[Rfam]
RNA sequence: UGGAAAUGAUGAAAUAGAGAUAAUUGGAUGUAAUUUUGAAUGGAGUGUGCGUGAUGAAUGGAAUUUAAACCAAGUCAGACUGGGGUGGGGCGUGGGGAGUGUGUGUGUGUGCGCGCAUGUAUAGAAAAGGCUUUGAAUGGGGGCACUGAUAAUGCAGUGCUGAUUCCGGAGUGCAUCUGAGGCAUGUUGUUAAGUUCUGGGGUGCCACUUUACAACAUUGCCGAUGAUUAAAGCCCAAAACAAGCCCACCAAGACAAGCCUCGACAUCCUAAAUCUCUAACAGGUUCACUAAUGAAAGUGAUCCUGUGAUCUGAUCCAA
Numbered sequence: 001u002g003g004a005a006a007u008g009a010u011g012a013a014a015u016a017g018a019g020a021u022a023a024u025u026g027g028a029u030g031u032a033a034u035u036u037u038g039a040a041u042g043g044a045g046u047g048u049g050c051g052u053g054a055u056g057a058a059u060g061g062a063a064u065u066u067a068a069a070c071c072a073a074g075u076c077a078g079a080c081u082g083g084g085g086u087g088g089g090g091c092g093u094g095g096g097g098a099g100u101g102u103g104u105g106u107g108u109g110u111g112c113g114c115g116c117a118u119g120u121a122u123a124g125a126a127a128a129g130g131c132u133u134u135g136a137a138u139g140g141g142g143g144c145a146c147u148g149a150u151a152a153u154g155c156a157g158u159g160c161u162g163a164u165u166c167c168g169g170a171g172u173g174c175a176u177c178u179g180a181g182g183c184a185u186g187u188u189g190u191u192a193a194g195u196u197c198u199g200g201g202g203u204g205c206c207a208c209u210u211u212a213c214a215a216c217a218u219u220g221c222c223g224a225u226g227a228u229u230a231a232a233g234c235c236c237a238a239a240a241c242a243a244g245c246c247c248a249c250c251a252a253g254a255c256a257a258g259c260c261u262c263g264a265c266a267u268c269c270u271a272a273a274u275c276u277c278u279a280a281c282a283g284g285u286u287c288a289c290u291a292a293u294g295a296a297a298g299u300g301a302u303c304c305u306g307u308g309a310u311c312u313g314a315u316c317c318a319a
Stems, first nucleotide, its partner, number of pairs: 001318004185217006192210001194205002197202001
RNA: Small Cajal body-specific RNA 7